[Rfam]
Rfam assigns this 102-nucleotide RNA sequence from Paenibacillus sambharensis to the family "Purine riboswitch aptamer". The literature on the family includes a 2003 paper in Cell by Mandal et al., "Riboswitches Control Fundamental Biochemical Pathways in Bacillus subtilis and Other Bacteria". The match comes from Rfam's covariance-model search (82 bits). Taxonomically the source falls in Paenibacillus (Bacteria, Bacillati, Bacillota, Paenibacillaceae).

RNA sequence: AAGUGAACUUUCAUACUAUCUCGUAUAAAUUCAGGAAUAUGGCCUGGAAGUUUCUACCCGGAAACCAUAAAUUUUCGGACUACGAGCAUGAUAAUAGAAACA
Numbered sequence: 001a002a003g004u005g006a007a008c009u010u011u012c013a014u015a016c017u018a019u020c021u022c023g024u025a026u027a028a029a030u031u032c033a034g035g036a037a038u039a040u041g042g043c044c045u046g047g048a049a050g051u052u053u054c055u056a057c058c059c060g061g062a063a064a065c066c067a068u069a070a071a072u073u074u075u076c077g078g079a080c081u082a083c084g085a086g087c088a089u090g091a092u093a094a095u096a097g098a099a100a101c102a
Stems, first nucleotide, its partner, number of pairs: 020086006030048006058078007